Annotation:
Rfam assigns this 85-nucleotide sequence to the family "Small nucleolar RNA R12". About the family: snoR12 is a C/D box small nucleolar RNA, which acts as a methylation guide for 25S ribosomal RNA in plants. snoR12 has been alternatively named snoZ44 in Arabidopsis and snoZ131 in rice. The literature on the family includes a 2003 paper in Nucleic Acids Res by Chen et al., "The high diversity of snoRNAs in plants: identification and comparative study of 120 snoRNA genes from Oryza sativa".
RNA sequence: UAAAAGAUGACGAAAAAAAUCGUUCGGAUUCCCUUUGAAUUCCCUCGGGAAAGAUGUGAUCACAAACCAGCUACUUCUGAUUUUA
Numbered sequence: 001u002a003a004a005a006g007a008u009g010a011c012g013a014a015a016a017a018a019a020u021c022g023u024u025c026g027g028a029u030u031c032c033c034u035u036u037g038a039a040u041u042c043c044c045u046c047g048g049g050a051a052a053g054a055u056g057u058g059a060u061c062a063c064a065a066a067c068c069a070g071c072u073a074c075u076u077c078u079g080a081u082u083u084u085a
Base pairs, nucleotide, nucleotide: 001085002084003083004082005081